[Rfam]
RNA sequence: CCUGAGGAAGCGCUUUGUCCACAUCAGUAGAAAACGCUUCCAUGAAGACGCGCUUUGUGCUGAUGUAGACAAAGCGCUUCAUCAGGG
Numbered sequence: 001c002c003u004g005a006g007g008a009a010g011c012g013c014u015u016u017g018u019c020c021a022c023a024u025c026a027g028u029a030g031a032a033a034a035c036g037c038u039u040c041c042a043u044g045a046a047g048a049c050g051c052g053c054u055u056u057g058u059g060c061u062g063a064u065g066u067a068g069a070c071a072a073a074g075c076g077c078u079u080c081a082u083c084a085g086g087g
Stems, first nucleotide, its partner, number of pairs: 001086005007080013021066001023064007031056003035052003040047001